[Rfam]
RNA sequence: GGAAGGCAAUCACGCCCGGUGGCGUGGCCGGACUUCAAAUCCGGUGGGGGACGGCAGCCGUUCCUGGGUGGGUUCGACUCCCACUGCCUUCC
Numbered sequence: 001g002g003a004a005g006g007c008a009a010u011c012a013c014g015c016c017c018g019g020u021g022g023c024g025u026g027g028c029c030g031g032a033c034u035u036c037a038a039a040u041c042c043g044g045u046g047g048g049g050g051a052c053g054g055c056a057g058c059c060g061u062u063c064c065u066g067g068g069u070g071g072g073u074u075c076g077a078c079u080c081c082c083a084c085u086g087c088c089u090u091c092c
Stems, first nucleotide, its partner, number of pairs: 001092008011026006027045006047065005069083004
Shown here is a 92-nucleotide RNA from Pseudomonas aeruginosa, a member of the family "Selenocysteine transfer RNA". Rfam links the family to the GO term triplet codon-amino acid adaptor activity. On this family, see Mizutani and Goto, FEBS Lett 2000: "Eukaryotic selenocysteine tRNA has the 9/4 secondary structure". The base pairs follow the family's consensus structure, which is taken from published work. Lineage of the source: Bacteria > Pseudomonadati > Gammaproteobacteria > Pseudomonas > Pseudomonas aeruginosa. Rfam's curators put it in the seed alignment.